[Rfam]
The record is a 426-nucleotide part of an RNA from Owenia fusiformis, which matches "Eukaryotic large subunit ribosomal RNA" in Rfam. It scores 3088 bits against the family's covariance model.

RNA sequence: GACAGGUCGUUGCAACGGUAAUCCUGCUCAGUACGAGAGGAACCGCAGGUUCAGACAUUUGGUUUAUGUGCUUGGCUGAUAAGCCAAUGGUGCGAGGCUACCAUCUGAGGGAUUAUGACUGAACGCCUCUAAGUCAGAAUCCCGCCCGAAAGUGCGACGAUACCGUACGCGCCUCAGCGUUGGUAGGCAACGAUAGACGCGGCUCGACCGUUCUCGGCGGCCGCGGCGGUGAAGCCGUAGCAACACAGUCCUUACCGAGCGGGCGAUAGGUGCUCUCUCGCGGACUGAAGCGACAGCAACCACGUGCAAUGUCGAGGUGCCAAAUCAUUCGUAGACGACCCAGGUCUCAGUCGGGGUGCCGUAAGUAGUAGAGCAGCCACCUCACUGCGAUCUAUUGAGACUAAGCCUUUCGACUGGUAGAUUUGU
Numbered sequence: 001g002a003c004a005g006g007u008c009g010u011u012g013c014a015a016c017g018g019u020a021a022u023c024c025u026g027c028u029c030a031g032u033a034c035g036a037g038a039g040g041a042a043c044c045g046c047a048g049g050u051u052c053a054g055a056c057a058u059u060u061g062g063u064u065u066a067u068g069u070g071c072u073u074g075g076c077u078g079a080u081a082a083g084c085c086a087a088u089g090g091u092g093c094g095a096g097g098c099u100a101c102c103a104u105c106u107g108a109g110g111g112a113u114u115a116u117g118a119c120u121g122a123a124c125g126c127c128u129c130u131a132a133g134u135c136a137g138a139a140u141c142c143c144g145c146c147c148g149a150a151a152g153u154g155c156g157a158c159g160a161u162a163c164c165g166u167a168c169g170c171g172c173c174u175c176a177g178c179g180u181u182g183g184u185a186g187g188c189a190a191c192g193a194u195a196g197a198c199g200c201g202g203c204u205c206g207a208c209c210g211u212u213c214u215c216g217g218c219g220g221c222c223g224c225g226g227c228g229g230u231g232a233a234g235c236c237g238u239a240g241c242a243a244c245a246c247a248g249u250c251c252u253u254a255c256c257g258a259g260c261g262g263g264c265g266a267u268a269g270g271u272g273c274u275c276u277c278u279c280g281c282g283g284a285c286u287g288a289a290g291c292g293a294c295a296g297c298a299a300c301c302a303c304g305u306g307c308a309a310u311g312u313c314g315a316g317g318u319g320c321c322a323a324a325u326c327a328u329u330c331g332u333a334g335a336c337g338a339c340c341c342a343g344g345u346c347u348c349a350g351u352c353g354g355g356g357u358g359c360c361g362u363a364a365g366u367a368g369u370a371g372a373g374c375a376g377c378c379a380c381c382u383c384a385c386u387g388c389g390a391u392c393u394a395u396u397g398a399g400a401c402u403a404a405g406c407c408u409u410u411c412g413a414c415u416g417g418u419a420g421a422u423u424u425g426u
Stems, first nucleotide, its partner, number of pairs: 006161008016148003021051001023049005052107004060100003067094005072087006109143003116136005169320007322424005328342001331339001348416006354408003358401001365395004370391001373388004

Taxonomically the source falls in Owenia (Eukaryota, Eumetazoa, Spiralia, Lophotrochozoa).